Rfam assigns this 132-nucleotide RNA from Thalassolituus maritimus to the family "Guanidine-I riboswitch aptamer". The family has 100 seed sequences and 1,509 matches in Rfam 15.1. A search with the family's covariance model found it, with a score of 77 bits. The pairing is the family consensus, mapped onto this sequence. About the family: This family represents a conserved RNA structure found upstream of the ykkC and yxkD genes in Bacillus subtilis and related genes in other bacteria.
RNA sequence: CAAUAAGGGCACUAGGGUUCCGGCAGGUCUCUCCCAAUCAAGUUAGGGGAUAGAACCAGCGACUGGACCGAGAGUGACCGACCUCCAGCGGCGUACUGGCAGGUUACACGGCGGGAUAAAAGCCCGGGAGAU
Numbered sequence: 001c002a003a004u005a006a007g008g009g010c011a012c013u014a015g016g017g018u019u020c021c022g023g024c025a026g027g028u029c030u031c032u033c034c035c036a037a038u039c040a041a042g043u044u045a046g047g048g049g050a051u052a053g054a055a056c057c058a059g060c061g062a063c064u065g066g067a068c069c070g071a072g073a074g075u076g077a078c079c080g081a082c083c084u085c086c087a088g089c090g091g092c093g094u095a096c097u098g099g100c101a102g103g104u105u106a107c108a109c110g111g112c113g114g115g116a117u118a119a120a121a122g123c124c125c126g127g128g129a130g131a132u
Stems, first nucleotide, its partner, number of pairs: 007079002010076003015069002020066002022063001023060002026057003080105005086099001107127001109130001113125003